Annotation: A member of the RNA family "Small nucleolar RNA snoR74" from Asparagus officinalis, 131 nucleotides long. It is annotated as an H/ACA-box small nucleolar RNA. The match comes from Rfam's covariance-model search (90 bits). The base pairs follow the family's consensus structure, which was predicted with WAR. NCBI's taxonomy places the organism under Eukaryota, Euphyllophyta, Mesangiospermae, Petrosaviidae, Asparagus.
Nucleotides: 131
Stems, first nucleotide, its partner, number of pairs: 005048003011037002014034001017031001062125001064123007077113007
Number, partner (000 for none) and nucleotide at each position: 001000a002000a003000a004000a005048a006047a007046g008000c009000a010000g011037g012036g013000g014034u015000u016000u017031g018000u019000u020000g021000u022000c023000u024000c025000c026000a027000u028000g029000a030000g031017c032000u033000c034014a035000c036012c037011u038000c039000u040000c041000g042000u043000a044000a045000a046007c047006u048005u049000u050000g051000g052000g053000g054000a055000a056000a057000u058000c059000g060000u061000c062125u063000a064123c065122a066121c067120u068119g069118u070117u071000a072000u073000u074000g075000g076000g077113u078112g079111a080110a081109c082108c083107u084000c085000u086000g087000u088000a089000g090000a091000u092000u093000c094000u095000g096000u097000u098000g099000a100000u101000g102000a103000c104000a105000a106000a107083a108082g109081g110080u111079u112078c113077a114000a115000u116000a117070g118069a119068c120067a121066g122065u123064g124000a125062a126000a127000c128000a129000u130000g131000c